[Rfam]
RNA sequence: UCUGCUCCUGAUUGUCCAAACGCAAUUCUUGUGCGCUGGAGCCGUACGAACCAAGAAUUGUGUCUGGACAUCUGUAGCAGA
Numbered sequence: 001u002c003u004g005c006u007c008c009u010g011a012u013u014g015u016c017c018a019a020a021c022g023c024a025a026u027u028c029u030u031g032u033g034c035g036c037u038g039g040a041g042c043c044g045u046a047c048g049a050a051c052c053a054a055g056a057a058u059u060g061u062g063u064c065u066g067g068a069c070a071u072c073u074g075u076a077g078c079a080g081a
Stems, first nucleotide, its partner, number of pairs: 002080005010072003014069005021062011
Dot-bracket structure: .(((((...(((.(((((..(((((((((((....................)))))))))))..))))))))...))))).
RNA: mir-219 microRNA precursor family